[Rfam]
RNA sequence: GUAAUUUCCCUAUUUACUGGAAUCAUUCCCGCAGCGUUGCUAUAGGUCAAAACACCCUGCCGACACAAGGCAUAACAACAAGCGACCUCGAGGUUGCUAUAACGUGCACCCAGGGAGACACACUGCAAUGCAUAA
Numbered sequence: 001g002u003a004a005u006u007u008c009c010c011u012a013u014u015u016a017c018u019g020g021a022a023u024c025a026u027u028c029c030c031g032c033a034g035c036g037u038u039g040c041u042a043u044a045g046g047u048c049a050a051a052a053c054a055c056c057c058u059g060c061c062g063a064c065a066c067a068a069g070g071c072a073u074a075a076c077a078a079c080a081a082g083c084g085a086c087c088u089c090g091a092g093g094u095u096g097c098u099a100u101a102a103c104g105u106g107c108a109c110c111c112a113g114g115g116a117g118a119c120a121c122a123c124u125g126c127a128a129u130g131c132a133u134a135a
Stems, first nucleotide, its partner, number of pairs: 013115003019029003040104001058072004081098006

The record is a 135-nucleotide sequence from Buttiauxella noackiae, which matches "opuB ncRNA motif" in Rfam.
Pairs were carried over by alignment from the consensus structure, which is taken from published work.
About the family: opuB ncRNA motif was reported as a strong cis regulatory motif candidate, with potential to be a cis regulatory riboswitch type, it have been identified in mostly from species of Enterobacteriaceae.
Rfam links the family to the GO term regulation of gene expression.
The organism belongs to Buttiauxella, within Bacteria.